The record is a 437-nucleotide RNA sequence from Thelonectria olida, which matches "RNase MRP" in Rfam.
The match comes from Rfam's covariance-model search (111 bits).
Its Rfam clan is "RNaseP clan".
Lineage of the source: Eukaryota > Sordariomycetes > Hypocreales > Nectriaceae > Thelonectria.

RNA sequence: UCCUCGUUCAACAAAUCGCUAUUCGAAGCUUACACACAGAGACACUACUUCUGUAGCGUCUCUUUCCACGCUUUGGGGAAAGUCCCCGGACGUCUCUUCACGGAGCUUGCGGAAACGCGCCGCCAUAAAAGCACUGCGGCUGACCUCCGCGCCCAGGCCCUCUUCUUGUCACCGGCCCUGUCCAUCGUUUUAUACUCGCAAGCCAAUUCGAUCUUUGGACCGCUUUCCGCCUUCGGACCCUAUGGAUGAAGAUAUGAGUCCGUCCGAUUGGGGGUUUGAAGUCUGAGGGAUCUGGAGCGGCGCGCGAGGGGAGCUGGGCAGCCGUCGAUUCAUGCGAGUGUGGUGUCGGGCGCAGAGGACCUGUUGUCAUGGUCGAUAGGUAUGCGAUUGCUCGGCGAAAGCUGAGUUACUCAAUGGGGCUCAUUCUUGACGCGAGG
Number, nucleotide and partner (000 for none) at each position: 001u000002c437003c436004u435005c434006g433007u432008u430009c429010a428011a427012c000013a000014a389015a388016u387017c386018g385019c384020u000021a000022u000023u076024c075025g074026a073027a072028g071029c070030u000031u000032a000033c000034a000035c000036a000037c000038a000039g062040a061041g060042a059043c058044a000045c056046u055047a054048c053049u000050u000051c000052u000053g048054u047055a046056g045057c000058g043059u042060c041061u040062c039063u000064u000065u000066c000067c000068a000069c000070g029071c028072u027073u026074u025075g024076g023077g000078g000079a000080a000081a421082g420083u000084c419085c418086c417087c416088g000089g000090a000091c000092g000093u000094c000095u000096c000097u000098u000099c000100a000101c000102g000103g000104a000105g000106c000107u000108u119109g118110c117111g116112g000113a000114a000115a000116c111117g110118c109119g108120c000121c000122g000123c000124c000125a000126u000127a000128a000129a000130a000131g000132c000133a000134c000135u000136g000137c000138g000139g000140c000141u000142g000143a000144c000145c000146u000147c000148c000149g000150c000151g000152c000153c000154c000155a000156g000157g000158c000159c000160c000161u000162c000163u000164u000165c000166u000167u000168g000169u000170c000171a000172c000173c000174g000175g000176c000177c000178c000179u000180g000181u000182c000183c000184a000185u000186c000187g000188u000189u000190u000191u000192a000193u000194a000195c000196u000197c000198g000199c000200a000201a000202g000203c000204c000205a000206a000207u000208u000209c000210g000211a000212u000213c000214u000215u000216u000217g000218g000219a000220c000221c000222g000223c000224u000225u000226u000227c000228c000229g000230c000231c000232u000233u000234c000235g000236g000237a000238c000239c000240c000241u000242a000243u000244g000245g000246a000247u000248g000249a000250a000251g000252a000253u000254a000255u000256g000257a000258g000259u000260c000261c000262g000263u000264c000265c000266g000267a000268u000269u000270g000271g000272g000273g000274g000275u000276u000277u000278g000279a000280a000281g000282u000283c000284u000285g000286a000287g000288g000289g000290a000291u000292c000293u000294g000295g000296a000297g000298c000299g000300g000301c000302g000303c000304g000305c000306g000307a000308g361309g360310g000311g000312a000313g000314c355315u354316g353317g000318g351319c350320a000321g000322c000323c348324g347325u000326c345327g000328a000329u000330u000331c000332a000333u000334g344335c343336g000337a341338g000339u000340g000341u337342g000343g335344u334345g326346u000347c324348g323349g000350g319351c318352g000353c316354a315355g314356a000357g000358g000359a000360c309361c308362u000363g000364u000365u000366g000367u000368c000369a000370u000371g000372g000373u000374c000375g000376a000377u000378a000379g000380g000381u000382a000383u000384g019385c018386g017387a016388u015389u014390g000391c406392u405393c404394g403395g402396c401397g000398a000399a000400a000401g396402c395403u394404g393405a392406g391407u000408u000409a000410c000411u000412c000413a000414a000415u000416g087417g086418g085419g084420c082421u081422c000423a000424u000425u000426c000427u011428u010429g009430a008431c000432g007433c006434g005435a004436g003437g002